Shown here is a 58-nucleotide RNA from Synechococcus sp. BL107, a member of the family "Glutamine-II riboswitch aptamer". The family's consensus secondary structure is taken from published work. It is one of the family's seed sequences.
[Rfam]
RNA sequence: GAACGUUCGCCCCUCUAAGGGGUGCAGUCCGACUUGGGUCAAGGAACGGGGACCCGAG
Numbered sequence: 001g002a003a004c005g006u007u008c009g010c011c012c013c014u015c016u017a018a019g020g021g022g023u024g025c026a027g028u029c030c031g032a033c034u035u036g037g038g039u040c041a042a043g044g045a046a047c048g049g050g051g052a053c054c055c056g057a058g
Base pairs, nucleotide, nucleotide: 004048005047006046007045008044010022011021012020013019014018033058034057035056036055037054038053039051040050